[Rfam]
RNA sequence: CUCUUAUCAAGAGUGGUGGAGGGACUGGCCCUAUGAAACCCGGCAACCUGUUACUACAAGGUGCCAAAUCCAGCGGUAUAAACCGAAAGAUAAGAG
Numbered sequence: 001c002u003c004u005u006a007u008c009a010a011g012a013g014u015g016g017u018g019g020a021g022g023g024a025c026u027g028g029c030c031c032u033a034u035g036a037a038a039c040c041c042g043g044c045a046a047c048c049u050g051u052u053a054c055u056a057c058a059a060g061g062u063g064c065c066a067a068a069u070c071c072a073g074c075g076g077u078a079u080a081a082a083c084c085g086a087a088a089g090a091u092a093a094g095a096g
Base pairs, nucleotide, nucleotide: 001096002095003094004093005092006091007090008089013041015040016039017038021031022030023029025073026072027071028070042065043064044063045062047061048060049058050057051056069088074085075084076083077082
Shown here is a 96-nucleotide sequence from Keratinibaculum paraultunense, a member of the family "SAM riboswitch aptamer (S box leader)".
The organism belongs to Keratinibaculum, within Bacteria.
A search with the family's covariance model found it, with a score of 92 bits.
The SAM riboswitch is found upstream of a number of genes which code for proteins involved in methionine or cysteine biosynthesis in Gram-positive bacteria. The SAM riboswitch acts at the level of transcription termination control. The predicted structure consists of a complex stem-loop region followed by a single stem loop terminator region. An alternative and mutually exclusive form involves bases in the 3' segment of helix 1 with those in the 5' region of helix 5 to form a structure termed the anti-terminator form. This entry represents the conserved core of the complex structure involving helices 1-4.
The base pairs follow the family's consensus structure, which is taken from published work.